[Rfam]
RNA: mraW RNA
Nucleotides: 103
Base pairs, nucleotide, nucleotide: 010090011089012088013087014086015085016084018082019081021079022078023077024076025075027073028072029071031069032068033067034066036065038063039062040061041060042059043058044057045056
Number, partner (000 for none) and nucleotide at each position: 001000u002000g003000u004000g005000a006000c007000c008000c009000c010090c011089g012088g013087c014086c015085c016084u017000c018082g019081g020000c021079c022078u023077c024076c025075a026000g027073c028072c029071g030000a031069c032068c033067g034066g035000u036065c037000u038063c039062c040061c041060g042059g043058c044057a045056c046000g047000a048000c049000u050000u051000c052000c053000c054000c055000c056045g057044u058043g059042c060041c061040g062039g063038g064000c065036g066034c067033c068032g069031g070000a071029c072028g073027g074000a075025u076024g077023g078022g079021g080000a081019c082018c083000c084016g085015g086014g087013g088012c089011c090010g091000g092000g093000g094000c095000c096000c097000a098000c099000c100000g101000c102000c103000g